[Rfam]
RNA sequence: CGGCUGUGAUGGUCAUCUGGUAAGGAACUGCAUUUGCACUAUCCUACCACUCUAUUCUAUCCUGUCACAUGGUGUCCGGUUCGAACGCUGCGGUGGCCCCCAACUCGUGUCGGUAACGCACGAUUGCUUGUGGGGUCCUAAGCAAUGAAAGACAAUCUUGAGGGAGGUUUCACUCUGCAGAGGAUCUUUCACCGUGGCGUGGCGAAUGGGAUUGCAUCAGUAAUGGGUGAGUGGUGAGAAGCGCAUCGGAUGUGGUGACUUACACUU
Number, nucleotide and partner (000 for none) at each position: 001c000002g014003g013004c012005u000006g000007u000008g000009a000010u000011g000012g004013u003014c002015a000016u000017c000018u000019g000020g263021u262022a261023a260024g259025g000026a000027a256028c255029u254030g253031c252032a251033u250034u000035u000036g000037c000038a000039c241040u240041a000042u000043c238044c000045u236046a235047c234048c233049a232050c231051u230052c229053u000054a000055u226056u000057c000058u000059a000060u000061c000062c000063u000064g000065u225066c000067a000068c000069a000070u219071g218072g217073u216074g215075u214076c210077c209078g000079g207080u206081u205082c204083g203084a000085a200086c199087g198088c197089u196090g195091c194092g193093g192094u000095g137096g000097c135098c134099c133100c132101c130102a129103a128104c000105u123106c122107g121108u120109g119110u000111c118112g117113g000114u000115a000116a000117c112118g111119c109120a108121c107122g106123a105124u000125u000126g000127c000128u103129u102130g101131u000132g100133g099134g098135g097136u000137c095138c142139u000140a000141a000142g138143c000144a000145a000146u191147g190148a189149a188150a187151g186152a185153c000154a000155a000156u183157c182158u181159u180160g000161a000162g000163g000164g175165a174166g173167g000168u000169u000170u000171c000172a000173c166174u165175c164176u000177g000178c000179a000180g159181a158182g157183g156184a000185u152186c151187u150188u149189u148190c147191a146192c093193c092194g091195u090196g089197g088198c087199g086200u085201g000202g000203c083204g082205a081206a080207u079208g000209g077210g076211a000212u000213u000214g075215c074216a073217u072218c071219a070220g000221u000222a000223a000224u000225g065226g055227g000228u000229g052230a051231g050232u049233g048234g047235u046236g045237a000238g043239a000240a040241g039242c000243g000244c000245a000246u000247c000248g000249g000250a033251u032252g031253u030254g029255g028256u027257g000258a000259c024260u023261u022262a021263c020264a000265c000266u000267u000

Description: Fungal signal recognition particle RNA: a 267-nucleotide RNA from Pseudogymnoascus sp. VKM F-4246. On this family, see Batey et al., J Mol Biol 2001: "Structural and energetic analysis of RNA recognition by a universally conserved protein from the signal recognition particle". The family is grouped with related families in Rfam's "SRP clan". Rfam classes the family as a non-coding RNA gene. The family's consensus secondary structure is taken from published work.